The family of this 339-nucleotide RNA from Eggerthellaceae bacterium zg-893 is "Bacterial RNase P class A".
It is annotated as a ribozyme.

RNA sequence: CGAGCGGGCCAGGCGAUCGCGCGCUUCGGCGUGAGGAAAGUCCGGGCUCCAAAGGGCAGGAUGCCAGCUAACGGCUGGGCGGGGCGACCCGACGGAUCAGUGCCACAGAAAAGAAAACUCCCCUGCUGCGCAGGAGAAAAGCUGAAACGGUGCGGUAAGAGCGCACCAGCGCGUCGGCAACGGCGCGGCUUGGCAAACCCCAUCUGGAGCAAGCGCAAAUAGGAACGCUGCAGGGCGGCCCGUCCUGCGUUCGGGUUGCGUGCUGGAGACCGUCGGCGACGGCGGUUCGAGAUAAAUGAUCGCCCUCGACAGAACCCGGCUUACAAGCCCGCUCGCCCC
Numbered sequence: 001c002g003a004g005c006g007g008g009c010c011a012g013g014c015g016a017u018c019g020c021g022c023g024c025u026u027c028g029g030c031g032u033g034a035g036g037a038a039a040g041u042c043c044g045g046g047c048u049c050c051a052a053a054g055g056g057c058a059g060g061a062u063g064c065c066a067g068c069u070a071a072c073g074g075c076u077g078g079g080c081g082g083g084g085c086g087a088c089c090c091g092a093c094g095g096a097u098c099a100g101u102g103c104c105a106c107a108g109a110a111a112a113g114a115a116a117a118c119u120c121c122c123c124u125g126c127u128g129c130g131c132a133g134g135a136g137a138a139a140a141g142c143u144g145a146a147a148c149g150g151u152g153c154g155g156u157a158a159g160a161g162c163g164c165a166c167c168a169g170c171g172c173g174u175c176g177g178c179a180a181c182g183g184c185g186c187g188g189c190u191u192g193g194c195a196a197a198c199c200c201c202a203u204c205u206g207g208a209g210c211a212a213g214c215g216c217a218a219a220u221a222g223g224a225a226c227g228c229u230g231c232a233g234g235g236c237g238g239c240c241c242g243u244c245c246u247g248c249g250u251u252c253g254g255g256u257u258g259c260g261u262g263c264u265g266g267a268g269a270c271c272g273u274c275g276g277c278g279a280c281g282g283c284g285g286u287u288c289g290a291g292a293u294a295a296a297u298g299a300u301c302g303c304c305c306u307c308g309a310c311a312g313a314a315c316c317c318g319g320c321u322u323a324c325a326a327g328c329c330c331g332c333u334c335g336c337c338c339c
Stems, first nucleotide, its partner, number of pairs: 001335009012304007020033005038322003042319005047209004054241004059205005064078005079093001080091004094200002100198002102194003118141002121136001122134005149167006169189001170187007213261004223252006232246005268287008